[Rfam]
Background
A member of the RNA family "Archaeal large subunit ribosomal RNA" from Thermofilum pendens, 400 nucleotides of a longer RNA. The family's consensus secondary structure is taken from published work. Taxonomically the source falls in Thermofilum pendens (Archaea, Thermofilales, Thermofilaceae, Thermofilum). Rfam's curators put it in the seed alignment.

RNA sequence: GGUAGUAAGAGCGCAAGAGGGGUGAGAAUCCCCUCCGCCGAAAGGGCAAGGGUUCCUCAGCAACGGUCGUCGGCUGAGGGUUAGCCGGUCCUAAGGCGGCCCUUAACCGGUGCCGCCGAAAGGGAAAGGGGUUAAUAUUCCCCUGCCGUGGGGUACGCUUUGCGGCAACGCGAGCCCCGCUCCUGACGCCUCGGGAUAGGGGGAGUGGGACUGCCGUCCCAUCCAAGCGCUGAAGCCCGCUGAGUGCCGUCAUGGCGAGAAGCGGGUGAAGGCGCGAUGGGCCCGCCGUUAGGCGGGUUCCCCCGACUCCUGGGGCCCGUGAAAAGGGAGCGGGGAAGGAGCCCCACGCCCGUACCGAGAACCGACACAGGUGCCCCUGGGUGAAAAGCCCAAGGCGUGG
Numbered sequence: 001g002g003u004a005g006u007a008a009g010a011g012c013g014c015a016a017g018a019g020g021g022g023u024g025a026g027a028a029u030c031c032c033c034u035c036c037g038c039c040g041a042a043a044g045g046g047c048a049a050g051g052g053u054u055c056c057u058c059a060g061c062a063a064c065g066g067u068c069g070u071c072g073g074c075u076g077a078g079g080g081u082u083a084g085c086c087g088g089u090c091c092u093a094a095g096g097c098g099g100c101c102c103u104u105a106a107c108c109g110g111u112g113c114c115g116c117c118g119a120a121a122g123g124g125a126a127a128g129g130g131g132u133u134a135a136u137a138u139u140c141c142c143c144u145g146c147c148g149u150g151g152g153g154u155a156c157g158c159u160u161u162g163c164g165g166c167a168a169c170g171c172g173a174g175c176c177c178c179g180c181u182c183c184u185g186a187c188g189c190c191u192c193g194g195g196a197u198a199g200g201g202g203g204a205g206u207g208g209g210a211c212u213g214c215c216g217u218c219c220c221a222u223c224c225a226a227g228c229g230c231u232g233a234a235g236c237c238c239g240c241u242g243a244g245u246g247c248c249g250u251c252a253u254g255g256c257g258a259g260a261a262g263c264g265g266g267u268g269a270a271g272g273c274g275c276g277a278u279g280g281g282c283c284c285g286c287c288g289u290u291a292g293g294c295g296g297g298u299u300c301c302c303c304c305g306a307c308u309c310c311u312g313g314g315g316c317c318c319g320u321g322a323a324a325a326g327g328g329a330g331c332g333g334g335g336a337a338g339g340a341g342c343c344c345c346a347c348g349c350c351c352g353u354a355c356c357g358a359g360a361a362c363c364g365a366c367a368c369a370g371g372u373g374c375c376c377c378u379g380g381g382u383g384a385a386a387a388g389c390c391c392a393a394g395g396c397g398u399g400g
Base pairs, nucleotide, nucleotide: 017035018034019033020032021031022030036397037396038395039394044376045375046374047373050356051355055079056078057077058076059075060074064072065071086352087351088350090123091122095117096116097115098114099113100112101110102109127144128143129142130141131140147348148347149346150345151344152343153342154341182328183327184326188316189315190314191313192312193311194310195309196308199304200303201302202301203300205222206221207220208219209218227275228274229273230272236266237265238264239263240262241261246256247255248254287292362371363370378392379391380390381389